[Rfam]
RNA sequence: GUUUAUCUCAGAGGAGUGAAUCUGAGAACACAAAGCUGGUUUGCAGUUCAUAUCAUCAUUUGUUGGUAUUUUGGUGAAUUUACUUUGUGUUCUCAGGUCACCCCUUUGAGCCAACC
Number, nucleotide and partner (000 for none) at each position: 001g000002u000003u000004u000005a000006u000007c110008u109009c000010a000011g106012a105013g104014g103015a000016g101017u100018g099019a098020a000021u000022c000023u000024g094025a093026g092027a091028a090029c089030a088031c087032a086033a085034a084035g083036c000037u000038g000039g000040u000041u000042u000043g000044c000045a000046g000047u000048u000049c000050a000051u000052a000053u000054c000055a000056u000057c000058a000059u000060u000061u000062g000063u000064u000065g000066g000067u000068a000069u000070u000071u000072u000073g000074g000075u000076g000077a000078a000079u000080u000081u000082a000083c035084u034085u033086u032087g031088u030089g029090u028091u027092c026093u025094c024095a000096g000097g000098u019099c018100a017101c016102c000103c014104c013105u012106u011107u000108g000109a008110g007111c000112c000113a000114a000115c000116c000